[Rfam]
RNA sequence: UAACCCGUGUCGAAAGGCGCGGCUGAACCGGCAGGAGUCAGCAGAGGGCAUAGUACCCUAGGGGACAGGAACCCCGGGGGAAGGCC
Numbered sequence: 001u002a003a004c005c006c007g008u009g010u011c012g013a014a015a016g017g018c019g020c021g022g023c024u025g026a027a028c029c030g031g032c033a034g035g036a037g038u039c040a041g042c043a044g045a046g047g048g049c050a051u052a053g054u055a056c057c058c059u060a061g062g063g064g065a066c067a068g069g070a071a072c073c074c075c076g077g078g079g080g081a082a083g084g085c086c
Stems, first nucleotide, its partner, number of pairs: 001025002005022007038045002047086003056079003061075003
RNA: Group II catalytic intron D1-D4-1